[Rfam]
RNA sequence: GGCCUGAAUCCGAACUGUCACCAUAUGGUGCGCGUGUCCGCCGGGACUAGGAUUCGGACCGUUC
Numbered sequence: 001g002g003c004c005u006g007a008a009u010c011c012g013a014a015c016u017g018u019c020a021c022c023a024u025a026u027g028g029u030g031c032g033c034g035u036g037u038c039c040g041c042c043g044g045g046a047c048u049a050g051g052a053u054u055c056g057g058a059c060c061g062u063u064c
Stems, first nucleotide, its partner, number of pairs: 001060002004057008016034003019030004036047004
RNA: DUF3800-IX RNA